[Rfam]
RNA sequence: AUUCUGAAUCUAUAGAGUUUGCUUUUUUAGCAAACACCAACCUGCGAGACAAAACUCGUAAGGUGGUUCAAUGAUUCGGCAUUCAAUGCAAGGCUAAUAAGCUAAA
Numbered sequence: 001a002u003u004c005u006g007a008a009u010c011u012a013u014a015g016a017g018u019u020u021g022c023u024u025u026u027u028u029a030g031c032a033a034a035c036a037c038c039a040a041c042c043u044g045c046g047a048g049a050c051a052a053a054a055c056u057c058g059u060a061a062g063g064u065g066g067u068u069c070a071a072u073g074a075u076u077c078g079g080c081a082u083u084c085a086a087u088g089c090a091a092g093g094c095u096a097a098u099a100a101g102c103u104a105a106a
Stems, first nucleotide, its partner, number of pairs: 006077005015035001018034005036067003041063003044059003048102001052098001079089004
RNA: SAM-I/IV (S-adenosyl methionine) riboswitch aptamer
Organism: Flavobacteriaceae bacterium